This 91-nucleotide RNA from Leucobacter chromiiresistens belongs to the Rfam family "Bacterial small signal recognition particle RNA". The match comes from Rfam's covariance-model search (61 bits). Clan: SRP clan. The organism belongs to Leucobacter, within Bacteria.
RNA sequence: GGCUCCCCACGUGGCGCUAUCUCAGGGAACUCCCCCAGGUCGGAAACGAAGCAAGGGUACCUGGGCUCUGGCGGGUGCGUGGGGAGUAUUU
Number, nucleotide and partner (000 for none) at each position: 001g000002g087003c086004u085005c084006c083007c082008c081009a080010c079011g078012u075013g000014g000015c073016g072017c071018u070019a069020u000021c065022u064023c063024a062025g061026g060027g000028a000029a000030c000031u000032c057033c056034c055035c000036c000037a000038g000039g000040u049041c048042g047043g000044a000045a000046a000047c042048g041049a040050a000051g000052c000053a000054a000055g034056g033057g032058u000059a000060c026061c025062u024063g023064g022065g021066c000067u000068c000069u019070g018071g017072c016073g015074g000075g012076u000077g000078c011079g010080u009081g008082g007083g006084g005085a004086g003087u002088a000089u000090u000091u000